Rfam assigns this 69-nucleotide sequence from Zophobas morio to the family "mir-1000 microRNA precursor family". Gene Ontology terms of the family: negative regulation of glutamate secretion, neurotransmission, RISC complex and miRNA-mediated post-transcriptional gene silencing. The organism belongs to Zophobas, within Eukaryota. The match comes from Rfam's covariance-model search (74 bits). The base pairs follow the family's consensus structure, which was predicted with RNAalifold.
RNA sequence: CACCGUGAUAUUGUCCUGUCACAGCAGUACUGAUUCGAGCUACUGCUGCCUCGGGACAUGACCACGGUA
Numbered sequence: 001c002a003c004c005g006u007g008a009u010a011u012u013g014u015c016c017u018g019u020c021a022c023a024g025c026a027g028u029a030c031u032g033a034u035u036c037g038a039g040c041u042a043c044u045g046c047u048g049c050c051u052c053g054g055g056a057c058a059u060g061a062c063c064a065c066g067g068u069a
Base pairs, nucleotide, nucleotide: 003067004066005065006064012058013057014056015055016054017053018052022048023047024046025045026044027043028042029041